[Rfam]
RNA: BsrC
Organism: Bacillus mesophilus
RNA sequence: UGAACCUAAAACAAUGAAAGCCCUACCUCUCCUCCAUCCUUAUGACUCCGAGGUCAUGCCAGUUGAGAAUUAGGAAUAGAAAAUUAAA
Numbered sequence: 001u002g003a004a005c006c007u008a009a010a011a012c013a014a015u016g017a018a019a020g021c022c023c024u025a026c027c028u029c030u031c032c033u034c035c036a037u038c039c040u041u042a043u044g045a046c047u048c049c050g051a052g053g054u055c056a057u058g059c060c061a062g063u064u065g066a067g068a069a070u071u072a073g074g075a076a077u078a079g080a081a082a083a084u085u086a087a088a
Stems, first nucleotide, its partner, number of pairs: 035067001039062002041058007